[Rfam]
RNA sequence: CGCCGAGGACGACCUCGCCGAGGACGACCUCGCCGAGGACGACCUCG
Numbered sequence: 001c002g003c004c005g006a007g008g009a010c011g012a013c014c015u016c017g018c019c020g021a022g023g024a025c026g027a028c029c030u031c032g033c034c035g036a037g038g039a040c041g042a043c044c045u046c047g
Stems, first nucleotide, its partner, number of pairs: 001020002004017005034047005
The family of this 47-nucleotide RNA from Micromonospora craterilacus is "Guanidine-II riboswitch aptamer (mini-ykkC)". Rfam describes the family as follows. Simpler in structure and has fewer highly conserved nucleotide positions than the ykkC-yxkD leader.